Nucleotides: 120
Base pairs, nucleotide, nucleotide: 007107008106009105010104011069012068013067014066017031018030019029020028021027039062040061041060042059075100076099077098078097081094082093083092084091
Number, partner (000 for none) and nucleotide at each position: 001000c002000c003000u004000u005000c006000u007107c008106a009105c010104c011069a012068g013067g014066g015000g016000g017031g018030u019029u020028c021027c022000g023000u024000c025000a026000a027021g028020g029019a030018g031017c032000u033000g034000a035000g036000a037000u038000a039062c040061u041060g042059c043000u044000g045000g046000g047000c048000c049000g050000c051000a052000a053000g054000g055000c056000a057000g058000c059042g060041c061040a062039g063000g064000g065000a066014c067013c068012c069011u070000a071000u072000g073000a074000a075100c076099c077098u078097g079000a080000u081094c082093c083092a084091g085000u086000u087000c088000a089000u090000a091084c092083u093082g094081g095000c096000g097078u098077a099076g100075g101000g102000a103000c104010g105009g106008u107007g108000u109000c110000g111000a112000u113000g114000c115000g116000c117000u118000g119000g120000c